Record summary:
Glutamine riboswitch aptamer (glnA leader): a 59-nucleotide sequence. The sequence is in the family's curated seed alignment. Gene Ontology term of the family: glutamine binding. On this family, see Ren et al., Cell Rep 2015: "Structural and Dynamic Basis for Low-Affinity, High-Selectivity Binding of L-Glutamine by the Glutamine Riboswitch".
RNA sequence: AUCGUUCAUCGUUAUUUGGGGACGGAAGUAGGUAAAAAAUCAAACCGAAGGAACGCAUC
Number, nucleotide and partner (000 for none) at each position: 001a000002u000003c055004g054005u053006u052007c051008a000009u022010c021011g000012u000013u000014a000015u000016u000017u000018g000019g000020g000021g010022a009023c000024g000025g056026a000027a000028g000029u000030a000031g046032g045033u000034a000035a000036a000037a000038a000039a000040u000041c000042a000043a000044a000045c032046c031047g000048a000049a000050g000051g007052a006053a005054c004055g003056c025057a000058u000059c000